[Rfam]
RNA: Selenocysteine transfer RNA
Organism: Rohdeia mirabilis
RNA sequence: GGGAGUGGAUCGGCGCUGGUGUGCCGCCCGGUCUUCAAAGCCGGUUAGGGGUGCGUGAACAGCGUGCUCGGUGGGUUCGAUUCCCAUGCACUCCC
Numbered sequence: 001g002g003g004a005g006u007g008g009a010u011c012g013g014c015g016c017u018g019g020u021g022u023g024c025c026g027c028c029c030g031g032u033c034u035u036c037a038a039a040g041c042c043g044g045u046u047a048g049g050g051g052u053g054c055g056u057g058a059a060c061a062g063c064g065u066g067c068u069c070g071g072u073g074g075g076u077u078c079g080a081u082u083c084c085c086a087u088g089c090a091c092u093c094c095c
Stems, first nucleotide, its partner, number of pairs: 001095007009087001011026006027049001028044005051069001053067003072086004